[Rfam]
RNA sequence: CCAACCGAAACAUGUCGAAGCAUGACCUCCGCUGAGGUAGUUCGUGGGGUAGAGCGACGGAUUGGGGGACCGGACUCCGAGAGGAGUUCGCCCCCCUGUCCAACUCCGAACCUACGAACGCCGUCGACGCGGGGAGUCCGGUGCGCGGGGUAAGCCUGUGUACCGUGAGGGAGACAACCCAGAGCUGGGUUAAGGUCCCCAAGUAUGGACUAAGUGCGAUCGAAGGUGGUCGCAAGCCCUAGACAGCCGGGAGGUGAGCUUAGAAGCAGCUACCCUCUAAGAAAAGCGUAACAGCUUACCGGCCGAGGUUUGCGGCGCCGAAAAUGAUCGGGGCUCAAGUUCAUCACCGAGACCUAGCGACGUGCCUCACCGCACGAUUCCGUAGGUUGGCGUACUGUUCGGGUGGAAGCACGGCCGAGAGGUCGUGUGGACCGUGCAGUAACGAAAAU
Numbered sequence: 001c002c003a004a005c006c007g008a009a010a011c012a013u014g015u016c017g018a019a020g021c022a023u024g025a026c027c028u029c030c031g032c033u034g035a036g037g038u039a040g041u042u043c044g045u046g047g048g049g050u051a052g053a054g055c056g057a058c059g060g061a062u063u064g065g066g067g068g069a070c071c072g073g074a075c076u077c078c079g080a081g082a083g084g085a086g087u088u089c090g091c092c093c094c095c096c097u098g099u100c101c102a103a104c105u106c107c108g109a110a111c112c113u114a115c116g117a118a119c120g121c122c123g124u125c126g127a128c129g130c131g132g133g134g135a136g137u138c139c140g141g142u143g144c145g146c147g148g149g150g151u152a153a154g155c156c157u158g159u160g161u162a163c164c165g166u167g168a169g170g171g172a173g174a175c176a177a178c179c180c181a182g183a184g185c186u187g188g189g190u191u192a193a194g195g196u197c198c199c200c201a202a203g204u205a206u207g208g209a210c211u212a213a214g215u216g217c218g219a220u221c222g223a224a225g226g227u228g229g230u231c232g233c234a235a236g237c238c239c240u241a242g243a244c245a246g247c248c249g250g251g252a253g254g255u256g257a258g259c260u261u262a263g264a265a266g267c268a269g270c271u272a273c274c275c276u277c278u279a280a281g282a283a284a285a286g287c288g289u290a291a292c293a294g295c296u297u298a299c300c301g302g303c304c305g306a307g308g309u310u311u312g313c314g315g316c317g318c319c320g321a322a323a324a325u326g327a328u329c330g331g332g333g334c335u336c337a338a339g340u341u342c343a344u345c346a347c348c349g350a351g352a353c354c355u356a357g358c359g360a361c362g363u364g365c366c367u368c369a370c371c372g373c374a375c376g377a378u379u380c381c382g383u384a385g386g387u388u389g390g391c392g393u394a395c396u397g398u399u400c401g402g403g404u405g406g407a408a409g410c411a412c413g414g415c416c417g418a419g420a421g422g423u424c425g426u427g428u429g430g431a432c433c434g435u436g437c438a439g440u441a442a443c444g445a446a447a448a449u
Stems, first nucleotide, its partner, number of pairs: 001390006011024005026136001027134006036122003040119008052107001053105002060100003064096005073089001074087005140164009169180003184358007194348003203345001205344006225319003229316010246303005252276003257271003277281001282297001286295002359380002361376005391444001393441006400434003409428008

The family of this 449-nucleotide part of an RNA from Natronosalvus rutilus is "Archaeal large subunit ribosomal RNA". On this family, see Yusupov et al., Science 2001: "Crystal structure of the ribosome at 5.5 A resolution". Rfam links the family to the GO terms structural constituent of ribosome and ribosome. Rfam 15.1 lists 2,955 matches to the family in 1,139 species.